Shown here is a 67-nucleotide sequence from Leptolyngbya iicbica, a member of the family "Glutamine riboswitch aptamer (glnA leader)".
RNA sequence: AUCGUUCAUCCAGCCAGUUUUUUGGCCAGGACGGAAGUAAGGGAAAGUUUCUCUGAAGGAACGCGCC
Numbered sequence: 001a002u003c004g005u006u007c008a009u010c011c012a013g014c015c016a017g018u019u020u021u022u023u024g025g026c027c028a029g030g031a032c033g034g035a036a037g038u039a040a041g042g043g044a045a046a047g048u049u050u051c052u053c054u055g056a057a058g059g060a061a062c063g064c065g066c067c
Base pairs, nucleotide, nucleotide: 003063004062005061006060007059009031010030011029013027034064040054041053042052043051044050
Dot-bracket structure: ..(((((.(((.(.............).)))..[.....(((((.....)))))....)))))]...
Its family is annotated with glutamine binding in the Gene Ontology.